[Rfam]
RNA: Small nucleolar RNA SNORA68
RNA sequence: CUGGCACCCAACCCAAGAACUGUCGCUGCCUGUAGCGGCUGUUUAAAUAGUGGUGCACACAGCAAAGGGGCUUCGUCGCCUUUGGGGGGCUGUGCAGUGCCCCCCAGAGUGAAUCAGUAGGCUCUACAGAA
Numbered sequence: 001c002u003g004g005c006a007c008c009c010a011a012c013c014c015a016a017g018a019a020c021u022g023u024c025g026c027u028g029c030c031u032g033u034a035g036c037g038g039c040u041g042u043u044u045a046a047a048u049a050g051u052g053g054u055g056c057a058c059a060c061a062g063c064a065a066a067g068g069g070g071c072u073u074c075g076u077c078g079c080c081u082u083u084g085g086g087g088g089g090c091u092g093u094g095c096a097g098u099g100c101c102c103c104c105c106a107g108a109g110u111g112a113a114u115c116a117g118u119a120g121g122c123u124c125u126a127c128a129g130a131a
Stems, first nucleotide, its partner, number of pairs: 004056005018043003022039006068124006080109011